RNA sequence: ACACGUUUGUCUACACUCUGGAUCUCGGCUUGGAUGUGAGACUUGAAUUUUGAGCAUUUCCUUGUGGAACCCCUUUGGGUUAGUACAUGAGGUUGUUGACAAUUCAUAGUGGUCUCUAAUCCAAAUCAUGUGCUGAGCUCCUAUUUAGAAGCAAACAAGAUAAACUCGUCACUUACUCACCGAUGUUUCUAUGCAGAAUUCUGCGAUAGAUUCCUUGGUCCAUAGAAUUGGCAUACAU
Numbered sequence: 001a002c003a004c005g006u007u008u009g010u011c012u013a014c015a016c017u018c019u020g021g022a023u024c025u026c027g028g029c030u031u032g033g034a035u036g037u038g039a040g041a042c043u044u045g046a047a048u049u050u051u052g053a054g055c056a057u058u059u060c061c062u063u064g065u066g067g068a069a070c071c072c073c074u075u076u077g078g079g080u081u082a083g084u085a086c087a088u089g090a091g092g093u094u095g096u097u098g099a100c101a102a103u104u105c106a107u108a109g110u111g112g113u114c115u116c117u118a119a120u121c122c123a124a125a126u127c128a129u130g131u132g133c134u135g136a137g138c139u140c141c142u143a144u145u146u147a148g149a150a151g152c153a154a155a156c157a158a159g160a161u162a163a164a165c166u167c168g169u170c171a172c173u174u175a176c177u178c179a180c181c182g183a184u185g186u187u188u189c190u191a192u193g194c195a196g197a198a199u200u201c202u203g204c205g206a207u208a209g210a211u212u213c214c215u216u217g218g219u220c221c222a223u224a225g226a227a228u229u230g231g232c233a234u235a236c237a238u
Stems, first nucleotide, its partner, number of pairs: 007154003020141003024137001026135004031123005168232003180218004185213001188210005
This 238-nucleotide sequence from Lachancea mirantina belongs to the Rfam family "Small nucleolar RNA snR80". Lineage of the source: Eukaryota > Opisthokonta > Dikarya > Saccharomycetales > Lachancea. Rfam 15.1 lists 447 matches to the family in 358 species. The literature on the family includes a 2004 paper in Nucleic Acids Res by Schattner et al., "Genome-wide searching for pseudouridylation guide snoRNAs: analysis of the Saccharomyces cerevisiae genome".